[Rfam]
RNA sequence: UCGAAGCUCCAUCUACCAAUGGAUAAGACCCAGUCUUAGUGUAUAGAAUUGAAAAAGAAAAAAAAAAGGAGCAAUAAAACCUUUCUUGUUCUAUCAAGAGGGCGUUAUUGCGCCUUUAUU
Numbered sequence: 001u002c003g004a005a006g007c008u009c010c011a012u013c014u015a016c017c018a019a020u021g022g023a024u025a026a027g028a029c030c031c032a033g034u035c036u037u038a039g040u041g042u043a044u045a046g047a048a049u050u051g052a053a054a055a056a057g058a059a060a061a062a063a064a065a066a067a068g069g070a071g072c073a074a075u076a077a078a079a080c081c082u083u084u085c086u087u088g089u090u091c092u093a094u095c096a097a098g099a100g101g102g103c104g105u106u107a108u109u110g111c112g113c114c115u116u117u118a119u120u
Stems, first nucleotide, its partner, number of pairs: 008023005065117005071111007080102002083100005

Source information
The record is a 120-nucleotide sequence from Nyctanthes arbor-tristis, which matches "Plastid-psbA-1 3UTR RNA" in Rfam. By type it is a cis-regulatory element. Rfam's curators put it in the seed alignment. Pairs were carried over by alignment from the consensus structure, which was predicted with LocARNA. The source organism's lineage runs through Eukaryota, Mesangiospermae, lamiids, Oleaceae and Nyctanthes. From the family's description: Plastid psbA-1 is a non-coding RNA (ncRNA) present in plastids. It was identified in inverted repeat sequences in the 3 prime untranslate region (3UTR) of photosystem II quinone-binding protein (psbA). The family is grouped with related families in Rfam's "Plastid-psbA 3UTR RNA clan".